[Rfam]
RNA sequence: UGUUAAUUAAAUAGAUUGCCGUAGACAGUAGGUACCUUAAGGUUUAAUUUCCUACCGAGGUUGAGAUUAAUCUAAUUUAUAAAAUUGAAAUUAGGAUCUCUCUGUGUCUACGGAGGGAUCUUUAUUUAUUCGUCC
Numbered sequence: 001u002g003u004u005a006a007u008u009a010a011a012u013a014g015a016u017u018g019c020c021g022u023a024g025a026c027a028g029u030a031g032g033u034a035c036c037u038u039a040a041g042g043u044u045u046a047a048u049u050u051c052c053u054a055c056c057g058a059g060g061u062u063g064a065g066a067u068u069a070a071u072c073u074a075a076u077u078u079a080u081a082a083a084a085u086u087g088a089a090a091u092u093a094g095g096a097u098c099u100c101u102c103u104g105u106g107u108c109u110a111c112g113g114a115g116g117g118a119u120c121u122u123u124a125u126u127u128a129u130u131c132g133u134c135c
Base pairs, nucleotide, nucleotide: 028055029054030053031052032051034043035042036041095120096119097118098117099116100115101114102113103112104111
The family of this 135-nucleotide sequence from Tissierella praeacuta is "Ribosomal protein L10 leader". A reference for the family is Iben and Draper (2008), "Specific interactions of the L10(L12)4 ribosomal protein complex with mRNA, rRNA, and L11", Biochemistry. Rfam classes the family as a cis-regulatory leader. This family is a putative r-protein leader autoregulatory structure found in B. subtilis and other low-GC Gram-positive bacteria. It is located in the 5' untranslated regions of mRNAs encoding ribosomal proteins L10 and L12 (rplJ-rplL). A Rho-independent transcription terminator structure that is probably involved in regulation is included at the 3' end. The source organism's lineage runs through Bacteria, Bacillota, Tissierellales, Tissierellaceae and Tissierella praeacuta.